[Rfam]
RNA sequence: AGCGAUAAAUGGCGUUCAGAAUAAGCGGCCCGGACCCGGGGGCGGUACCCGGCGGCUCCACCACAUGACUUCUCUCCCUCGGGGGGGGGGAGCCCUGCGGCGGGGCCGAAAUAGGAUCGACGGACGUGUAAAGGUUCGGCUUUCGCUCGGAUGGCCUCCGUUAUUGGGCCAUGAUGAAUAGUUGCCAAUGACAACUCUUCGGAAGGUUUCGCUCUCGCUGCGUAA
Numbered sequence: 001a002g003c004g005a006u007a008a009a010u011g012g013c014g015u016u017c018a019g020a021a022u023a024a025g026c027g028g029c030c031c032g033g034a035c036c037c038g039g040g041g042g043c044g045g046u047a048c049c050c051g052g053c054g055g056c057u058c059c060a061c062c063a064c065a066u067g068a069c070u071u072c073u074c075u076c077c078c079u080c081g082g083g084g085g086g087g088g089g090g091a092g093c094c095c096u097g098c099g100g101c102g103g104g105g106c107c108g109a110a111a112u113a114g115g116a117u118c119g120a121c122g123g124a125c126g127u128g129u130a131a132a133g134g135u136u137c138g139g140c141u142u143u144c145g146c147u148c149g150g151a152u153g154g155c156c157u158c159c160g161u162u163a164u165u166g167g168g169c170c171a172u173g174a175u176g177a178a179u180a181g182u183u184g185c186c187a188a189u190g191a192c193a194a195c196u197c198u199u200c201g202g203a204a205g206g207u208u209u210c211g212c213u214c215u216c217g218c219u220g221c222g223u224a225a
Stems, first nucleotide, its partner, number of pairs: 001147005014137001017134001026126002030123003036052005053108007148160004
RNA: permuted transfer-messenger RNA
Organism: Parvularcula bermudensis